[Rfam]
RNA: Eukaryotic small subunit ribosomal RNA, nucleotides 25 to 624
Organism: Rhopalura ophiocomae
RNA sequence: AUAUGCUUGUCUCAAAGAUUAAGCCAUGCAUGUCUAAGUUCAAACUUAAUUGACAGUGAAACCGCGAAUAGCUCAUUAAACCAGCUAUAAUUUAUUGGAUCUUGCACUAUAGUUGGAUAACUGUGGCAAAUCUAGAGCUAACACAUGCAAUAGAGCUUUUUGGAUUUCCGUUAAAAGAAGUCAGAGAAGGGCAAUUGUUAGUAAAAUAACCAAUCAGAGGAUAUUUAUAGACUCUGGUUAUUGGUGACUCUGGACAAUUUUGCCGAUCGUAAGGCCUAGAGCCGACGAUAGAUCCUUCAAGUGUCUGCCCUAUCAACUUUCGAUGGUAGGGUAUCGGCCUACCAUGGUUGUAACGGGUAACGGAGAAUCAGGGUUCGAUUCCGGAGAGGGAGCCUUAGAAACAGCUCCUACUUCCAAGGAGGGCAGCAGGCGCGCAAACUACCCAAUCCCGGUUCGGGGAGGUGGUGACGAAAAAUGUCGGACGAGUCAACCUUUGGUUUGCUCGAUCGAGAUGGAGAUUGAAAUAAAAACUCUAACGAAAGCAAUUGGAGGGCAAGUCUGGUGCCAGCAGCCGCGGUAAUUCCAGCUCCAAUAGCGUAU
Numbered sequence: 001a002u003a004u005g006c007u008u009g010u011c012u013c014a015a016a017g018a019u020u021a022a023g024c025c026a027u028g029c030a031u032g033u034c035u036a037a038g039u040u041c042a043a044a045c046u047u048a049a050u051u052g053a054c055a056g057u058g059a060a061a062c063c064g065c066g067a068a069u070a071g072c073u074c075a076u077u078a079a080a081c082c083a084g085c086u087a088u089a090a091u092u093u094a095u096u097g098g099a100u101c102u103u104g105c106a107c108u109a110u111a112g113u114u115g116g117a118u119a120a121c122u123g124u125g126g127c128a129a130a131u132c133u134a135g136a137g138c139u140a141a142c143a144c145a146u147g148c149a150a151u152a153g154a155g156c157u158u159u160u161u162g163g164a165u166u167u168c169c170g171u172u173a174a175a176a177g178a179a180g181u182c183a184g185a186g187a188a189g190g191g192c193a194a195u196u197g198u199u200a201g202u203a204a205a206a207u208a209a210c211c212a213a214u215c216a217g218a219g220g221a222u223a224u225u226u227a228u229a230g231a232c233u234c235u236g237g238u239u240a241u242u243g244g245u246g247a248c249u250c251u252g253g254a255c256a257a258u259u260u261u262g263c264c265g266a267u268c269g270u271a272a273g274g275c276c277u278a279g280a281g282c283c284g285a286c287g288a289u290a291g292a293u294c295c296u297u298c299a300a301g302u303g304u305c306u307g308c309c310c311u312a313u314c315a316a317c318u319u320u321c322g323a324u325g326g327u328a329g330g331g332u333a334u335c336g337g338c339c340u341a342c343c344a345u346g347g348u349u350g351u352a353a354c355g356g357g358u359a360a361c362g363g364a365g366a367a368u369c370a371g372g373g374u375u376c377g378a379u380u381c382c383g384g385a386g387a388g389g390g391a392g393c394c395u396u397a398g399a400a401a402c403a404g405c406u407c408c409u410a411c412u413u414c415c416a417a418g419g420a421g422g423g424c425a426g427c428a429g430g431c432g433c434g435c436a437a438a439c440u441a442c443c444c445a446a447u448c449c450c451g452g453u454u455c456g457g458g459g460a461g462g463u464g465g466u467g468a469c470g471a472a473a474a475a476u477g478u479c480g481g482a483c484g485a486g487u488c489a490a491c492c493u494u495u496g497g498u499u500u501g502c503u504c505g506a507u508c509g510a511g512a513u514g515g516a517g518a519u520u521g522a523a524a525u526a527a528a529a530a531c532u533c534u535a536a537c538g539a540a541a542g543c544a545a546u547u548g549g550a551g552g553g554c555a556a557g558u559c560u561g562g563u564g565c566c567a568g569c570a571g572c573c574g575c576g577g578u579a580a581u582u583c584c585a586g587c588u589c590c591a592a593u594a595g596c597g598u599a600u
Stems, first nucleotide, its partner, number of pairs: 001600007010473001012471002016466001017433001023431003027428003032065002038062002044057002072386003082307003087302002091300002097295004114145002121137002124134003156189004163182006195257005209245004217226003267288004273283003309357003316348003323345008361383004365376004388409006411422004439464001441463003447459005479509002482507001483505005489499004517537001521533002546592006559586004568575002